RNA sequence: GAUGCAAGUGAAGACACACAGACAGGGACAUCAGAUCUCUUUGAGAAUGAUGAUUUGUCGUUGGGAAUCUCUCUGAUGCAUU
Number, nucleotide and partner (000 for none) at each position: 001g000002a081003u080004g079005c078006a077007a000008g000009u000010g000011a000012a000013g000014a000015c000016a000017c000018a000019c000020a000021g000022a000023c000024a000025g000026g000027g000028a000029c000030a000031u000032c000033a000034g000035a000036u000037c000038u000039c000040u000041u000042u000043g000044a000045g000046a000047a000048u000049g000050a000051u000052g000053a000054u000055u000056u000057g000058u000059c000060g000061u000062u000063g000064g000065g000066a000067a000068u000069c000070u000071c000072u000073c000074u000075g000076a000077u006078g005079c004080a003081u002082u000
RNA: Small nucleolar RNA R44/J54/Z268 family
Organism: Cuscuta australis